RNA: FMN riboswitch aptamer (RFN element)
RNA sequence: AAAUAUCUUCAGGGCGAGGCGAAAUUCCUCACCGGCGGUAAAGCCCGCGAGCCAAAUUUUUGGUUGACUUGGUGAAAUUCCAAGGCCGACAGUUAAAGUCUGGAUGGAAGAAGAUCAUA
Dot-bracket structure: ....((((((......(((.......))).[[((((((....[[))))..(((........)))...(((((.......)))))]])).(((.....]]))).......))))))....